[Rfam]
RNA sequence: CAUGGGCGACAAGACCGUCUGCCCGCUGCCGGGCCACGGCACCAACCCGAUCGCCGCCGGCGACGC
Numbered sequence: 001c002a003u004g005g006g007c008g009a010c011a012a013g014a015c016c017g018u019c020u021g022c023c024c025g026c027u028g029c030c031g032g033g034c035c036a037c038g039g040c041a042c043c044a045a046c047c048c049g050a051u052c053g054c055c056g057c058c059g060g061c062g063a064c065g066c
Base pairs, nucleotide, nucleotide: 007065008064017040018039019038020036021035023033024032051063052062053061054060055059

Shown here is a 66-nucleotide RNA sequence from Massilia eurypsychrophila, a member of the family "Pseudomonas sRNA P10". On this family, see Livny et al., Nucleic Acids Res 2006: "Identification of 17 Pseudomonas aeruginosa sRNAs and prediction of sRNA-encoding genes in 10 diverse pathogens using the bioinformatic tool sRNAPredict2". It scores 56 bits against the family's covariance model. The family's consensus secondary structure was predicted with WAR. NCBI's taxonomy places the organism under Bacteria, Betaproteobacteria, Burkholderiales, Oxalobacteraceae, Massilia.